[Rfam]
RNA sequence: UCGAUGCGUUACCAUUUGAGUAUCCUGAAAACGGGCUUUUCAGCAUGGGACGCAUUUAUUUAAUUAUAGGAGUGCAUAGUGGCCCGUAUAGCAGGCAUUAACAUUCCUGAU
Numbered sequence: 001u002c003g004a005u006g007c008g009u010u011a012c013c014a015u016u017u018g019a020g021u022a023u024c025c026u027g028a029a030a031a032c033g034g035g036c037u038u039u040u041c042a043g044c045a046u047g048g049g050a051c052g053c054a055u056u057u058a059u060u061u062a063a064u065u066a067u068a069g070g071a072g073u074g075c076a077u078a079g080u081g082g083c084c085c086g087u088a089u090a091g092c093a094g095g096c097a098u099u100a101a102c103a104u105u106c107c108u109g110a111u
Base pairs, nucleotide, nucleotide: 003056004055005054006053007052008051009050012048013047024095025094026093032086033085034084035083040110041109042108
Dot-bracket structure: ..(((((((..((..........[[[.....[[[[....{{{....)).)))))))..........................]]]]......]]]............}}}.
The record is a 111-nucleotide RNA from Pantoea vagans, which matches "Alpha operon ribosome binding site" in Rfam.
A reference for the family is Schlax et al. (2001), "Translational repression of the Escherichia coli alpha operon mRNA: importance of an mRNA conformational switch and a ternary entrapment complex", J Biol Chem.
The source organism's lineage runs through Bacteria, Pseudomonadota, Gammaproteobacteria, Erwiniaceae and Pantoea.
The base pairs follow the family's consensus structure, which is taken from published work.
By type it is a cis-regulatory element.
From the family's description: The bacterial alpha operon ribosome binding site is surrounded by this complex pseudoknotted structure. Translation of the mRNA produces 4 ribosomal protein products, one of which (S4) acts as a translational repressor by binding to the nested pseudoknot region. The mechanism of repression is thought to involve a conformational switch in the pseudoknot region and ribosome entrapment.